The record is a 51-nucleotide sequence, which matches "nhaA-I RNA" in Rfam. It is annotated as a riboswitch. Acidobacteria, Alphaproteobacteria, Betaproteobacteria and Gammaproteobacteria, Verrucomicrobia, cand. division NC10. The base pairs follow the family's consensus structure, which is taken from published work.
RNA sequence: GGGUUCGGGAAGAUUUUCUCCCGGAGGACUUGGGUGGUCGGGCCGCCACUC
Numbered sequence: 001g002g003g004u005u006c007g008g009g010a011a012g013a014u015u016u017u018c019u020c021c022c023g024g025a026g027g028a029c030u031u032g033g034g035u036g037g038u039c040g041g042g043c044c045g046c047c048a049c050u051c
Base pairs, nucleotide, nucleotide: 005024006023007022008021009020010019012018032051033050034049035048036047037046038045